This 82-nucleotide sequence from Enterobacteriaceae bacterium RIT714 belongs to the Rfam family "OmrA-B family". Pairs were carried over by alignment from the consensus structure, which was predicted with WAR. On this family, see Argaman et al., Curr Biol 2001: "Novel small RNA-encoding genes in the intergenic regions of Escherichia coli". The match comes from Rfam's covariance-model search (72 bits).
RNA sequence: CCCAGAGGUAUUGAUAGGUGAGAUCAGCUCCGGUUGAUUAACACGAAUUACACCAACCUGCGUUUAUACGCAGGUUUUUUUU
Numbered sequence: 001c002c003c004a005g006a007g008g009u010a011u012u013g014a015u016a017g018g019u020g021a022g023a024u025c026a027g028c029u030c031c032g033g034u035u036g037a038u039u040a041a042c043a044c045g046a047a048u049u050a051c052a053c054c055a056a057c058c059u060g061c062g063u064u065u066a067u068a069c070g071c072a073g074g075u076u077u078u079u080u081u082u
Stems, first nucleotide, its partner, number of pairs: 017054004023038006056075008